Notes
The record is a 124-nucleotide sequence from Neogobius melanostomus, which matches "Small nucleolar RNA SNORA65" in Rfam. U65 belongs to the H/ACA class of snoRNAs which are thought to guide the sites of modification of uridines to pseudouridines. Its family is annotated with nucleolus and RNA processing in the Gene Ontology. By type it is an H/ACA-box small nucleolar RNA. Its Rfam clan is "SNORA65 clan".

RNA sequence: CCCGCCACUAUGCCCGUCUGCAGUGACAGAGUAUAAUCCAGUGGAGGCUCAGAGAAACCCGGCUUUAGGAAACAGGGUGGUCCACAACAAUGGUCAACUCUGUGCCGUAAAGUUUGGAACAACU
Numbered sequence: 001c002c003c004g005c006c007a008c009u010a011u012g013c014c015c016g017u018c019u020g021c022a023g024u025g026a027c028a029g030a031g032u033a034u035a036a037u038c039c040a041g042u043g044g045a046g047g048c049u050c051a052g053a054g055a056a057a058c059c060c061g062g063c064u065u066u067a068g069g070a071a072a073c074a075g076g077g078u079g080g081u082c083c084a085c086a087a088c089a090a091u092g093g094u095c096a097a098c099u100c101u102g103u104g105c106c107g108u109a110a111a112g113u114u115u116g117g118a119a120c121a122a123c124u
Stems, first nucleotide, its partner, number of pairs: 005044005018031001019026001059117004063112004068106002073102006082093002